[Rfam]
RNA sequence: ACAGGUCGAAAGCCGCGAGGCUCGCCCCGUACAGACGCCUUCCCGCGGCGUCUAUUUCGCGAGCGGGCUAAGGUCUGAGAGUUGGUCCUCCUCGAUCGGCUCUAGCAGAGCCCCGUGGUAACCCACGGCGCGACGUACCAGCAAUAUCCCGCGAAACACCACCCGGAGACCUCUCGCCUUCGGGCGAGAGUGAGGGACGCGCCGCCUCGUGUCCCUUCGGGGAAACCUGGAUGGCAUAAGCGUUCUGGGCUUGCCCAGCGCGGGUUGGAACGCGUCGCGAGGACCGGGUGUCUGGGUUUGUCCCUCGAAUUCGUCUACGAGGUGUACUGCCGGAUGUUCCCUUGAGUGCACUUCGCGGCGCGCGCUCUUGACCUUAGGAUCGAAGGCGCGUAACUCGAUUCAGACUACUCUUGGCCUGU
Numbered sequence: 001a002c003a004g005g006u007c008g009a010a011a012g013c014c015g016c017g018a019g020g021c022u023c024g025c026c027c028c029g030u031a032c033a034g035a036c037g038c039c040u041u042c043c044c045g046c047g048g049c050g051u052c053u054a055u056u057u058c059g060c061g062a063g064c065g066g067g068c069u070a071a072g073g074u075c076u077g078a079g080a081g082u083u084g085g086u087c088c089u090c091c092u093c094g095a096u097c098g099g100c101u102c103u104a105g106c107a108g109a110g111c112c113c114c115g116u117g118g119u120a121a122c123c124c125a126c127g128g129c130g131c132g133a134c135g136u137a138c139c140a141g142c143a144a145u146a147u148c149c150c151g152c153g154a155a156a157c158a159c160c161a162c163c164c165g166g167a168g169a170c171c172u173c174u175c176g177c178c179u180u181c182g183g184g185c186g187a188g189a190g191u192g193a194g195g196g197a198c199g200c201g202c203c204g205c206c207u208c209g210u211g212u213c214c215c216u217u218c219g220g221g222g223a224a225a226c227c228u229g230g231a232u233g234g235c236a237u238a239a240g241c242g243u244u245c246u247g248g249g250c251u252u253g254c255c256c257a258g259c260g261c262g263g264g265u266u267g268g269a270a271c272g273c274g275u276c277g278c279g280a281g282g283a284c285c286g287g288g289u290g291u292c293u294g295g296g297u298u299u300g301u302c303c304c305u306c307g308a309a310u311u312c313g314u315c316u317a318c319g320a321g322g323u324g325u326a327c328u329g330c331c332g333g334a335u336g337u338u339c340c341c342u343u344g345a346g347u348g349c350a351c352u353u354c355g356c357g358g359c360g361c362g363c364g365c366u367c368u369u370g371a372c373c374u375u376a377g378g379a380u381c382g383a384a385g386g387c388g389c390g391u392a393a394c395u396c397g398a399u400u401c402a403g404a405c406u407a408c409u410c411u412u413g414g415c416c417u418g419u
Stems, first nucleotide, its partner, number of pairs: 001419004007413003012359007020064005034052006075403005085284004098112005113128006130278007148264006360391007
Dot-bracket structure: ((((..(((..(((((((.(((((.........((((((.......)))))).......)))))..........[[[[[.....((((.........(((((.....)))))((((((....)))))).(((((((...........((((((.........................................................................................................)))))).......)))))))..))))....................................................................)))))))(((((((..................))))))).......]]]]].......)))..))))

Description: This 419-nucleotide RNA from Peniophora sp. CBMAI 1063 belongs to the Rfam family "Nuclear RNase P". NCBI's taxonomy places the organism under Eukaryota, Opisthokonta, Dikarya, Agaricomycetes, Peniophora. Rfam 15.1 lists 3,848 matches to the family in 1,862 species. Rfam classes the family as a ribozyme.